[Rfam]
A member of the RNA family "bablM sRNA" from Manduca sexta, 69 nucleotides long. The family's consensus secondary structure is taken from published work. Lineage of the source: Eukaryota > Dicondylia > Neolepidoptera > Bombycoidea > Manduca.
RNA sequence: UAAUCUACUCUCUAAUGCAGACACAGUUUGUGUGAAAAGACAUUUGUUUAAUUUUUUUAUAAAAAAUGA
Numbered sequence: 001u002a003a004u005c006u007a008c009u010c011u012c013u014a015a016u017g018c019a020g021a022c023a024c025a026g027u028u029u030g031u032g033u034g035a036a037a038a039g040a041c042a043u044u045u046g047u048u049u050a051a052u053u054u055u056u057u058u059a060u061a062a063a064a065a066a067u068g069a
Stems, first nucleotide, its partner, number of pairs: 017031005036049003041046001

The literature on the family includes a 2009 paper in BMC Genomics by Meyer et al., "Identification of candidate structured RNAs in the marine organism 'Candidatus Pelagibacter ubique'".